Shown here is an 81-nucleotide sequence from Merluccius polli, a member of the family "Small nucleolar RNA SNORD53/SNORD92". It is annotated as a C/D-box small nucleolar RNA. Its family is annotated with nucleolus and RNA processing in the Gene Ontology. On this family, see Huttenhofer et al., EMBO J 2001: "RNomics: an experimental approach that identifies 201 candidates for novel, small, non-messenger RNAs in mouse". The source organism's lineage runs through Eukaryota, Chordata, Gnathostomata, Clupeocephala and Merluccius.

RNA sequence: GGGGAGUGAUGAGUCUGAGAACGGUUUCGCAUAAAGGACUGAAAUCAUGUGAUGUCAGAAUUCUCUUGGCUAUCUGACCUC
Numbered sequence: 001g002g003g004g005a006g007u008g009a010u011g012a013g014u015c016u017g018a019g020a021a022c023g024g025u026u027u028c029g030c031a032u033a034a035a036g037g038a039c040u041g042a043a044a045u046c047a048u049g050u051g052a053u054g055u056c057a058g059a060a061u062u063c064u065c066u067u068g069g070c071u072a073u074c075u076g077a078c079c080u081c
Stems, first nucleotide, its partner, number of pairs: 001081004